[Rfam]
RNA sequence: GAGCUAUGAUGAUGUCUGCGCAUAAUUGAAGGAUUGGGUUCUUCAAAUUUGGCCGAUCUUAAGACGACUCUUCUGCGCAACUGAGCUU
Dot-bracket structure: ((((................................................................................))))